[Rfam]
RNA sequence: UCCCUAUAGACGGACUGAACGGCAACGGGUAGCGAGAACCCGGCAGGGA
Numbered sequence: 001u002c003c004c005u006a007u008a009g010a011c012g013g014a015c016u017g018a019a020c021g022g023c024a025a026c027g028g029g030u031a032g033c034g035a036g037a038a039c040c041c042g043g044c045a046g047g048g049a
Stems, first nucleotide, its partner, number of pairs: 001049005007043001011021002017033001023036001026042005
Background:
Shown here is a 49-nucleotide RNA sequence, a member of the family "DUF2693-FD RNA". The base pairs follow the family's consensus structure, which is taken from published work. By type it is a small RNA. Rfam's curators write: DUF2693-FD RNA is a non-coding RNA (ncRNA) recognised in Bacteroides by a bioinformatic analisis by Zasha Weinberg. No recognised genes.